A member of the RNA family "Selenocysteine insertion sequence 1" from Xenopus laevis, 63 nucleotides long. The incorporation of selenocysteine into a protein sequence is directed by an in-frame UGA codon (usually a stop codon) within the coding region of the mRNA. Selenoprotein mRNAs contain a conserved secondary structure in the 3' UTR that is required for the distinction of UGA stop from UGA selenocysteine. The selenocysteine insertion sequence (SECIS) is around 60 nt in length and adopts a hairpin structure which is sufficiently well-defined and conserved to act as a computational screen for selenoprotein genes. Gene Ontology term of the family: selenocysteine incorporation. It scores 36 bits against the family's covariance model. The source organism's lineage runs through Eukaryota, Opisthokonta, Euteleostomi, Xenopodinae and Xenopus.
RNA sequence: GUGUGGGCAUGAUGACAUCACCUCAAACAUCACCAUAAUGGUGAUGUUUGAAGUAUGCCAGAU
Numbered sequence: 001g002u003g004u005g006g007g008c009a010u011g012a013u014g015a016c017a018u019c020a021c022c023u024c025a026a027a028c029a030u031c032a033c034c035a036u037a038a039u040g041g042u043g044a045u046g047u048u049u050g051a052a053g054u055a056u057g058c059c060a061g062a063u
Stems, first nucleotide, its partner, number of pairs: 001063002004060002014048009029036002
Dot-bracket structure: ((.((........(((((((((......((....))...)))))))))..........)).))